[Rfam]
RNA sequence: AGCCUCAUUCCAGAUGAAAGUGGGCACUGUUGUUCAUGGCAUCCAGAAAUUAUUAAUGUAGCUAUAUUGAGACACAAGUUAUGCUUCCAUCACAGUAGGUUUGUUCCAGUGGUGACAGUGAAACCUGUAACAUUU
Numbered sequence: 001a002g003c004c005u006c007a008u009u010c011c012a013g014a015u016g017a018a019a020g021u022g023g024g025c026a027c028u029g030u031u032g033u034u035c036a037u038g039g040c041a042u043c044c045a046g047a048a049a050u051u052a053u054u055a056a057u058g059u060a061g062c063u064a065u066a067u068u069g070a071g072a073c074a075c076a077a078g079u080u081a082u083g084c085u086u087c088c089a090u091c092a093c094a095g096u097a098g099g100u101u102u103g104u105u106c107c108a109g110u111g112g113u114g115a116c117a118g119u120g121a122a123a124c125c126u127g128u129a130a131c132a133u134u135u
Stems, first nucleotide, its partner, number of pairs: 002062002006058003021045004027039001074128003078124001088114006
Annotation: This 135-nucleotide RNA from Equus caballus belongs to the Rfam family "Small nucleolar RNA SNORA1". By type it is an H/ACA-box small nucleolar RNA. ACA1 is a member of the H/ACA class of snoRNA that guide the sites of modification of uridines to pseudouridines. A search with the family's covariance model found it, with a score of 129 bits. The family has 29 seed sequences and 1,282 matches in Rfam 15.1. Rfam links the family to the GO terms nucleolus and RNA processing.